[Rfam]
RNA: Glycine riboswitch aptamer
Organism: Burkholderiales bacterium PBB5
RNA sequence: UGACCUGGACUCAGGAGAGAGCCCCACACGGGGCCGCCGAAGGCGCAGAGGUUUCCCCUCGAACGCUCAGGCAAAAGGACUGGUCAGCGGCG
Numbered sequence: 001u002g003a004c005c006u007g008g009a010c011u012c013a014g015g016a017g018a019g020a021g022c023c024c025c026a027c028a029c030g031g032g033g034c035c036g037c038c039g040a041a042g043g044c045g046c047a048g049a050g051g052u053u054u055c056c057c058c059u060c061g062a063a064c065g066c067u068c069a070g071g072c073a074a075a076a077g078g079a080c081u082g083g084u085c086a087g088c089g090g091c092g
Stems, first nucleotide, its partner, number of pairs: 006087001008085003012082003021034004036072003039068002043066003049059002